[Rfam]
Source information:
A member of the RNA family "Potassium channel RNA editing signal" from Polypterus senegalus, 114 nucleotides long.
RNA sequence: GUGGGAUACGGCGACAUGAAGCCCAUUACGGUCGGAGGCAAAAUCGUGGGCUCCCUGUGUGCCAUAGCCGGAGUGCUGACUAUCGCCCUGCCCGUACCCGUCAUCGUUUCCAAC
Numbered sequence: 001g002u003g004g005g006a007u008a009c010g011g012c013g014a015c016a017u018g019a020a021g022c023c024c025a026u027u028a029c030g031g032u033c034g035g036a037g038g039c040a041a042a043a044u045c046g047u048g049g050g051c052u053c054c055c056u057g058u059g060u061g062c063c064a065u066a067g068c069c070g071g072a073g074u075g076c077u078g079a080c081u082a083u084c085g086c087c088c089u090g091c092c093c094g095u096a097c098c099c100g101u102c103a104u105c106g107u108u109u110c111c112a113a114c
Stems, first nucleotide, its partner, number of pairs: 001114002004111002008107004013102003018097001020095001037077004049063003
Pairs were carried over by alignment from the consensus structure, which is taken from published work. The organism belongs to Polypterus, within Eukaryota.